The record is an 89-nucleotide RNA sequence from Bombyx mori, which matches "mir-317 microRNA precursor family" in Rfam.
Rfam's curators put it in the seed alignment.
The family's consensus secondary structure was predicted with RNAalifold.
Rfam links the family to the GO terms RISC complex and miRNA-mediated post-transcriptional gene silencing.
For this family Rfam cites "Systematic discovery and characterization of fly microRNAs using 12 Drosophila genomes" (Stark et al., Genome Res, 2007).
RNA sequence: GCUAUCGAACGACCGGGUGCCACGCUGUGCUCUCUCGAAAAUUAUGGCGGAGUGAACACAGCUGGUGGUAUCUCAGUUGUUCCCUAGUU
Numbered sequence: 001g002c003u004a005u006c007g008a009a010c011g012a013c014c015g016g017g018u019g020c021c022a023c024g025c026u027g028u029g030c031u032c033u034c035u036c037g038a039a040a041a042u043u044a045u046g047g048c049g050g051a052g053u054g055a056a057c058a059c060a061g062c063u064g065g066u067g068g069u070a071u072c073u074c075a076g077u078u079g080u081u082c083c084c085u086a087g088u089u
Stems, first nucleotide, its partner, number of pairs: 008080001011077001015074001016072002019069002022066002025061003029057001031055002